Annotation:
Shown here is a 98-nucleotide sequence from Clostridium gasigenes, a member of the family "Purine riboswitch aptamer". A search with the family's covariance model found it, with a score of 66 bits. The family's consensus secondary structure is taken from published work.
[Rfam]
RNA sequence: AUAGUUGCACAUUUUAUUGCUUGUAUAUCCCCUGAAUAUGGCAGGGCGUAUCUACCGGAAACCUUAAAUUUCCGACUAUGAGUGAAUUUAAUUGCUAU
Numbered sequence: 001a002u003a004g005u006u007g008c009a010c011a012u013u014u015u016a017u018u019g020c021u022u023g024u025a026u027a028u029c030c031c032c033u034g035a036a037u038a039u040g041g042c043a044g045g046g047c048g049u050a051u052c053u054a055c056c057g058g059a060a061a062c063c064u065u066a067a068a069u070u071u072c073c074g075a076c077u078a079u080g081a082g083u084g085a086a087u088u089u090a091a092u093u094g095c096u097a098u
Stems, first nucleotide, its partner, number of pairs: 018084008030046005056074006